Overview
A member of the RNA family "MIR480 microRNA precursor family" from Populus alba, 109 nucleotides long. A search with the family's covariance model found it, with a score of 49 bits. Its family is annotated with RISC complex and miRNA-mediated post-transcriptional gene silencing in the Gene Ontology. Pairs were carried over by alignment from the consensus structure, which was predicted with WAR. NCBI's taxonomy places the organism under Eukaryota, eudicotyledons, Gunneridae, fabids, Populus.
RNA sequence: UAAUAUGUUUAGGGCAGGUCUUCUUUUAGUUAUAUAACAAACUCACGCUUGACUGCUCAUAAUUAUCCAUGAAAACUACUGUGUAAACAAUAACUUCUUAAGAUUUGAA
Numbered sequence: 001u002a003a004u005a006u007g008u009u010u011a012g013g014g015c016a017g018g019u020c021u022u023c024u025u026u027u028a029g030u031u032a033u034a035u036a037a038c039a040a041a042c043u044c045a046c047g048c049u050u051g052a053c054u055g056c057u058c059a060u061a062a063u064u065a066u067c068c069a070u071g072a073a074a075a076c077u078a079c080u081g082u083g084u085a086a087a088c089a090a091u092a093a094c095u096u097c098u099u100a101a102g103a104u105u106u107g108a109a
Stems, first nucleotide, its partner, number of pairs: 004107002007104001008102002012098001014095001023083001025081001027078005